[Rfam]
RNA sequence: UUCAUAGUGAGUUAGAACCUGAAGGAAGCCUAGGAUAAAGUCUAGUUCUAAGGAACAAAAAUUACAUAUGAAGCUACUGAGAAAUGGAUGAGUUUGCGUAACAGAACAAAGUAUAAUAUUAUCCAAGUCUUAAGUAUUAAAUGUAGCAGAUAUAUGAGCGGAAGGUUGUUGAU
Numbered sequence: 001u002u003c004a005u006a007g008u009g010a011g012u013u014a015g016a017a018c019c020u021g022a023a024g025g026a027a028g029c030c031u032a033g034g035a036u037a038a039a040g041u042c043u044a045g046u047u048c049u050a051a052g053g054a055a056c057a058a059a060a061a062u063u064a065c066a067u068a069u070g071a072a073g074c075u076a077c078u079g080a081g082a083a084a085u086g087g088a089u090g091a092g093u094u095u096g097c098g099u100a101a102c103a104g105a106a107c108a109a110a111g112u113a114u115a116a117u118a119u120u121a122u123c124c125a126a127g128u129c130u131u132a133a134g135u136a137u138u139a140a141a142u143g144u145a146g147c148a149g150a151u152a153u154a155u156g157a158g159c160g161g162a163a164g165g166u167u168g169u170u171g172a173u
Stems, first nucleotide, its partner, number of pairs: 001016002004013001028173001030171001032169001035166002042158002045155001047150003062146006073138001075136001077134002080131002083128001086114001088112002092107004

The record is a 173-nucleotide RNA from Terrisporobacter othiniensis, which matches "Group II catalytic intron D1-D4-3" in Rfam.
Pairs were carried over by alignment from the consensus structure.
About the family: Group II introns are found in rRNA, tRNA and mRNA of organelles in fungi, plants and protists, and also in mRNA in bacteria.
The organism belongs to Terrisporobacter, within Bacteria.